RNA sequence: UCCAAACUAUUGGGAGAUUGAUGAGAUCGACCGACACCAAAUCAAGAUCAAUGAAGAUUACGAUUCCGUUUCGGUCAUCUCAUCAAUCUCCCAAUACGAACCU
Numbered sequence: 001u002c003c004a005a006a007c008u009a010u011u012g013g014g015a016g017a018u019u020g021a022u023g024a025g026a027u028c029g030a031c032c033g034a035c036a037c038c039a040a041a042u043c044a045a046g047a048u049c050a051a052u053g054a055a056g057a058u059u060a061c062g063a064u065u066c067c068g069u070u071u072c073g074g075u076c077a078u079c080u081c082a083u084c085a086a087u088c089u090c091c092c093a094a095u096a097c098g099a100a101c102c103u
Base pairs, nucleotide, nucleotide: 008096009095010094011093012092013091014090015089016088017087018086019085020084021083022082023081024080025079026078029076030075031074032073033072036069037068040065041064042063043062046059047058048057

Description
Shown here is a 103-nucleotide sequence from Arabidopsis lyrata, a member of the family "MIR3444 microRNA precursor family". Rfam's curators put it in the seed alignment. The source organism's lineage runs through Eukaryota, Magnoliopsida, Brassicaceae, Camelineae and Arabidopsis.